[Rfam]
Shown here is an 80-nucleotide sequence from Pelodiscus sinensis, a member of the family "Small nucleolar RNA SNORD79". It is annotated as a C/D-box small nucleolar RNA. Rfam links the family to the GO terms nucleolus and RNA processing.

RNA sequence: UACUGUUAAUGAUGAUUUUUUGUUGUAAACAAUGGGAAUCUCUCUGAAAGAAUGAGGAGGACACUUAUGCUGAAACAGUA
Numbered sequence: 001u002a003c004u005g006u007u008a009a010u011g012a013u014g015a016u017u018u019u020u021u022g023u024u025g026u027a028a029a030c031a032a033u034g035g036g037a038a039u040c041u042c043u044c045u046g047a048a049a050g051a052a053u054g055a056g057g058a059g060g061a062c063a064c065u066u067a068u069g070c071u072g073a074a075a076c077a078g079u080a
Stems, first nucleotide, its partner, number of pairs: 001080007
snoRNA U79 or Z22 is found in intron 7 of the gas5 gene in humans and is also present in mice.